[Rfam]
Nucleotides: 090
Base pairs, nucleotide, nucleotide: 001090002089003088004087025052026051027050028049029048031044032043
Number, partner (000 for none) and nucleotide at each position: 001090g002089g003088a004087u005000g006000g007000a008000u009000g010000a011000u012000g013000a014000c015000a016000c017000g018000u019000c020000a021000g022000u023000u024000a025052c026051a027050c028049u029048u030000c031044u032043u033000u034000g035000a036000g037000c038000u039000g040000a041000a042000c043032a044031g045000g046000a047000u048029g049028a050027g051026u052025g053000a054000g055000a056000a057000c058000u059000g060000c061000a062000a063000a064000c065000u066000g067000u068000c069000c070000c071000u072000c073000u074000c075000a076000c077000c078000a079000u080000g081000a082000c083000u084000g085000a086000g087004g088003u089002c090001u